[Rfam]
RNA sequence: CUUAAUAAAUAGCUGAAUCUUCCCUUGGGAUAGGGAGGUACGGAGGAACCAAUAUUUUGGGGUUAAUCUAUCGAAAGAUAGUAGGGGUGAUCCUAUUACCCGAACCCGACAGCUAACUUCGGAAGCUAUAAAUAGGAGGAAAA
Numbered sequence: 001c002u003u004a005a006u007a008a009a010u011a012g013c014u015g016a017a018u019c020u021u022c023c024c025u026u027g028g029g030a031u032a033g034g035g036a037g038g039u040a041c042g043g044a045g046g047a048a049c050c051a052a053u054a055u056u057u058u059g060g061g062g063u064u065a066a067u068c069u070a071u072c073g074a075a076a077g078a079u080a081g082u083a084g085g086g087g088u089g090a091u092c093c094u095a096u097u098a099c100c101c102g103a104a105c106c107c108g109a110c111a112g113c114u115a116a117c118u119u120c121g122g123a124a125g126c127u128a129u130a131a132a133u134a135g136g137a138g139g140a141a142a143a
Stems, first nucleotide, its partner, number of pairs: 011127004019038007041121005050059002060107003068081004084101003

A member of the RNA family "c-di-AMP riboswitch aptamer (ydaO/yuaA leader)" from Pseudobacteroides cellulosolvens, 143 nucleotides long.
NCBI's taxonomy places the organism under Bacteria, Bacillota, Clostridia, Pseudobacteroides, Pseudobacteroides cellulosolvens.
It scores 96 bits against the family's covariance model.